[Rfam]
RNA sequence: UGCGAUACCCUUCAAAGGAGUAGUUCCCCAACCUGGAGUUACAUUACCAUAUUCCGAAUUC
Numbered sequence: 001u002g003c004g005a006u007a008c009c010c011u012u013c014a015a016a017g018g019a020g021u022a023g024u025u026c027c028c029c030a031a032c033c034u035g036g037a038g039u040u041a042c043a044u045u046a047c048c049a050u051a052u053u054c055c056g057a058a059u060u061c
Base pairs, nucleotide, nucleotide: 017045018044020042021041022040023039024038025037026036027035

Annotation
The record is a 61-nucleotide sequence from Castanea mollissima, which matches "Plastid-psbN 5UTR RNA" in Rfam. It scores 76 bits against the family's covariance model. About the family: Plastid psbN is a non-coding RNA (ncRNA) recognised in plastids. The family's consensus secondary structure was predicted with LocARNA. Lineage of the source: Eukaryota > Viridiplantae > Gunneridae > fabids > Castanea. Rfam 15.1 lists 2,345 matches to the family in 397 species.